The family of this 358-nucleotide sequence from Leuconostoc mesenteroides is "transfer-messenger RNA". On this family, see Williams and Bartel, RNA 1996: "Phylogenetic analysis of tmRNA secondary structure". Rfam's curators put it in the seed alignment. Taxonomically the source falls in Leuconostoc mesenteroides subsp. cremoris (Bacteria, Lactobacillales, Leuconostoc, Leuconostoc mesenteroides). The family's RNA type in Rfam is non-coding RNA gene.
RNA sequence: GGGUCUGUUUUUGGAAUUCGACAGGUCGUUUAGAGCAUUGAUUGCGUUUCGCCAUCCGGGCGCAAAACGGGCAGAAAUUUUAACUGCAAAAAACGAAAACUCUUUCGCUAUCGCUGCCUAAAAACCAGUGAUGCGUAGCUUAAUCUUGGUUGCUGGCGUCUGAGGUUAGGCCAUAAAAGGCCAGAUCGUACUGCUUCUUACAUCUGGAAAAGCAGUAUUAAAUCAAUCAGGUUAGUUAUAUUGAAGAGCCUUGAGCUAUGGCAGACAAUAUAAUGAACUACAAAUAAUAGCCCUAUAAACGUAGAUAUUGGUGUAUCGGGCGAUUUGGACAGGGGUUCGACUCCCCUCAGAUCCAUUU
Numbered sequence: 001g002g003g004u005c006u007g008u009u010u011u012u013g014g015a016a017u018u019c020g021a022c023a024g025g026u027c028g029u030u031u032a033g034a035g036c037a038u039u040g041a042u043u044g045c046g047u048u049u050c051g052c053c054a055u056c057c058g059g060g061c062g063c064a065a066a067a068c069g070g071g072c073a074g075a076a077a078u079u080u081u082a083a084c085u086g087c088a089a090a091a092a093a094c095g096a097a098a099a100c101u102c103u104u105u106c107g108c109u110a111u112c113g114c115u116g117c118c119u120a121a122a123a124a125c126c127a128g129u130g131a132u133g134c135g136u137a138g139c140u141u142a143a144u145c146u147u148g149g150u151u152g153c154u155g156g157c158g159u160c161u162g163a164g165g166u167u168a169g170g171c172c173a174u175a176a177a178a179g180g181c182c183a184g185a186u187c188g189u190a191c192u193g194c195u196u197c198u199u200a201c202a203u204c205u206g207g208a209a210a211a212g213c214a215g216u217a218u219u220a221a222a223u224c225a226a227u228c229a230g231g232u233u234a235g236u237u238a239u240a241u242u243g244a245a246g247a248g249c250c251u252u253g254a255g256c257u258a259u260g261g262c263a264g265a266c267a268a269u270a271u272a273a274u275g276a277a278c279u280a281c282a283a284a285u286a287a288u289a290g291c292c293c294u295a296u297a298a299a300c301g302u303a304g305a306u307a308u309u310g311g312u313g314u315a316u317c318g319g320g321c322g323a324u325u326u327g328g329a330c331a332g333g334g335g336u337u338c339g340a341c342u343c344c345c346c347u348c349a350g351a352u353c354c355a356u357u358u
Stems, first nucleotide, its partner, number of pairs: 001354007022327009033316001035314008045301005050062004055071004109133008138171005144165006151158001153184005190216007198208001202232006235274009248262003253293001255291002259287001331347005